mir-1180 microRNA precursor family: a 69-nucleotide RNA from Trichechus manatus. Its family is annotated with miRNA-mediated post-transcriptional gene silencing and RISC complex in the Gene Ontology. A reference for the family is Zhou et al. (2009), "In silico detection and characteristics of novel microRNA genes in the Equus caballus genome using an integrated ab initio and comparative genomic approach", Genomics.

[Rfam]
RNA sequence: UCUGCCUGACUCACCUGGCCGAGAAUAGUGCUCCUGGUUUUUUUCCGGCUCAAGUGGGUGUGUCAGAAG
Number, nucleotide and partner (000 for none) at each position: 001u067002c066003u065004g064005c000006c062007u000008g000009a059010c058011u057012c056013a055014c054015c000016u052017g051018g049019c048020c047021g046022a044023g043024a042025a041026u000027a039028g038029u000030g000031c036032u000033c000034c000035u000036g031037g000038u028039u027040u000041u025042u024043u023044u022045c000046c021047g020048g019049c018050u000051c017052a016053a000054g014055u013056g012057g011058g010059u009060g000061u000062g006063u000064c004065a003066g002067a001068a000069g000